This 96-nucleotide sequence from Thiemannella venezuelensis belongs to the Rfam family "Glycine riboswitch aptamer". It scores 50 bits against the family's covariance model. Taxonomically the source falls in Thiemannella (Bacteria, Bacillati, Actinomycetes, Streptosporangiales).
RNA sequence: UGCCCUCUGGAAAGCAGGCCUCCGCGGCCUCGCCGAAGGUGAAAGUCCGGCAAAAACCGGGUGAAGCUCUCAGGCAACCAUGACAGAGGGGGAGGA
Numbered sequence: 001u002g003c004c005c006u007c008u009g010g011a012a013a014g015c016a017g018g019c020c021u022c023c024g025c026g027g028c029c030u031c032g033c034c035g036a037a038g039g040u041g042a043a044a045g046u047c048c049g050g051c052a053a054a055a056a057c058c059g060g061g062u063g064a065a066g067c068u069c070u071c072a073g074g075c076a077a078c079c080a081u082g083a084c085a086g087a088g089g090g091g092g093a094g095g096a
Stems, first nucleotide, its partner, number of pairs: 003090007016030004032075003035071002039069001041067001045062005